Shown here is a 59-nucleotide RNA sequence from Synechococcus sp. CC9311, a member of the family "psbNH RNA".
Lineage of the source: Bacteria > Cyanobacteriota > Cyanophyceae > Synechococcaceae > Synechococcus.
Rfam classes the family as a cis-regulatory element.
The sequence is in the family's curated seed alignment.
[Rfam]
RNA sequence: GGGUUGAAUUAAGUCUCGAUACUGUAGGGGCUCCGACCCAUAUAGGGGUCGAUCCUGUG
Numbered sequence: 001g002g003g004u005u006g007a008a009u010u011a012a013g014u015c016u017c018g019a020u021a022c023u024g025u026a027g028g029g030g031c032u033c034c035g036a037c038c039c040a041u042a043u044a045g046g047g048g049u050c051g052a053u054c055c056u057g058u059g
Stems, first nucleotide, its partner, number of pairs: 027056004034051006